[Rfam]
Nucleotides: 072
Stems, first nucleotide, its partner, number of pairs: 001071007010024003026043005048064005
Number, partner (000 for none) and nucleotide at each position: 001071g002070c003069u004068u005067c006066u007065g008000u009000g010024g011023u012022c013000c014000a015000g016000c017000a018000g019000u020000a021000a022012g023011a024010u025000a026043u027042c028041a029040g030039g031000u032000c033000a034000u035000a036000a037000c038000a039030c040029c041028u042027g043026g044000a045000g046000a047000c048064a049063u050062g051061g052060g053000u054000u055000c056000g057000a058000a059000u060052c061051c062050c063049a064048u065007u066006a067005g068004a069003a070002g071001c072000u
This 72-nucleotide sequence from Monosporascus sp. mg162 belongs to the Rfam family "tRNA". The match comes from Rfam's covariance-model search (45 bits). By type it is a transfer RNA. The family's consensus secondary structure is taken from published work. The source organism's lineage runs through Eukaryota, Dikarya, leotiomyceta, Sordariomycetes and Monosporascus.